[Rfam]
Rfam assigns this 70-nucleotide sequence from Branchiostoma floridae to the family "mir-278 microRNA precursor family".
RNA sequence: CCCGCCCGGACGAGAACCCUUCGCCAGUCGUCGGGCUUUAGCAGAUCGGUGGGGUUUUCGUUCGAGUGGG
Numbered sequence: 001c002c003c004g005c006c007c008g009g010a011c012g013a014g015a016a017c018c019c020u021u022c023g024c025c026a027g028u029c030g031u032c033g034g035g036c037u038u039u040a041g042c043a044g045a046u047c048g049g050u051g052g053g054g055u056u057u058u059c060g061u062u063c064g065a066g067u068g069g070g
Stems, first nucleotide, its partner, number of pairs: 001070005007064007015056005021051001025048001027046003